[Rfam]
RNA sequence: AGAGUCGGCCAGACAGUCGCCGCUUUCUUCGGAAAGGGGAGGAAAGUCCGGACUCCACAGAGCAGGGUGAUGGCUAACGGCCAUCCGUGGCGACACGCGGAACAGGGCCACAGAAAACAAACCGCCGAUGGCCGCCCGGCGCAAGCCGGCGGCUCAGGUAAGGGUGAAACGGUGCGGUAAGAGCGCACCGCGGCGUGCGGCAACGCACACGGCACGGUAACCUCCACCCGGAGCAAUUCCAAAUAGGCAAGCGCGUCCCGCAUGGCUUCGUGCGAUGCGGGACACAACGGGGCUCACGUGAGCUUGCGGGUAGGAAGCUUGAGCGGCGCAGCAAUGCGCCGCCUAGAGGAAUGACUGUCAACCGCGCUUCGGCGCGGGCACAGAAUCCGGCUUAUCGGCCGGCUCUGCCA
Numbered sequence: 001a002g003a004g005u006c007g008g009c010c011a012g013a014c015a016g017u018c019g020c021c022g023c024u025u026u027c028u029u030c031g032g033a034a035a036g037g038g039g040a041g042g043a044a045a046g047u048c049c050g051g052a053c054u055c056c057a058c059a060g061a062g063c064a065g066g067g068u069g070a071u072g073g074c075u076a077a078c079g080g081c082c083a084u085c086c087g088u089g090g091c092g093a094c095a096c097g098c099g100g101a102a103c104a105g106g107g108c109c110a111c112a113g114a115a116a117a118c119a120a121a122c123c124g125c126c127g128a129u130g131g132c133c134g135c136c137c138g139g140c141g142c143a144a145g146c147c148g149g150c151g152g153c154u155c156a157g158g159u160a161a162g163g164g165u166g167a168a169a170c171g172g173u174g175c176g177g178u179a180a181g182a183g184c185g186c187a188c189c190g191c192g193g194c195g196u197g198c199g200g201c202a203a204c205g206c207a208c209a210c211g212g213c214a215c216g217g218u219a220a221c222c223u224c225c226a227c228c229c230g231g232a233g234c235a236a237u238u239c240c241a242a243a244u245a246g247g248c249a250a251g252c253g254c255g256u257c258c259c260g261c262a263u264g265g266c267u268u269c270g271u272g273c274g275a276u277g278c279g280g281g282a283c284a285c286a287a288c289g290g291g292g293c294u295c296a297c298g299u300g301a302g303c304u305u306g307c308g309g310g311u312a313g314g315a316a317g318c319u320u321g322a323g324c325g326g327c328g329c330a331g332c333a334a335u336g337c338g339c340c341g342c343c344u345a346g347a348g349g350a351a352u353g354a355c356u357g358u359c360a361a362c363c364g365c366g367c368u369u370c371g372g373c374g375c376g377g378g379c380a381c382a383g384a385a386u387c388c389g390g391c392u393u394a395u396c397g398g399c400c401g402g403c404u405c406u407g408c409c410a
Base pairs, nucleotide, nucleotide: 001406002405003404004403005402006401007400008399009398010397011395012359013358014357015356016355017354018353020039021038023036024035025034026033027032044393045392046391048390049389050388051387052386053233054232055231056230060295061294062293063292065229066228067227068226069225070084071083072082073081074080085099086097087096088095089094100224101223105222106221107218108217109216122163123162124159125158126157129156130155131154133152171189172188173187174186175185176184190213191211192210195208196207197206198205199204237316238315239314240313247307248306249305250304251303252302287299288298289297323342324341325340326339327338328337329336330335

Annotation:
This 410-nucleotide RNA from Pandoraea thiooxydans belongs to the Rfam family "Bacterial RNase P class A". The family's consensus secondary structure is taken from published work. Rfam classes the family as a ribozyme.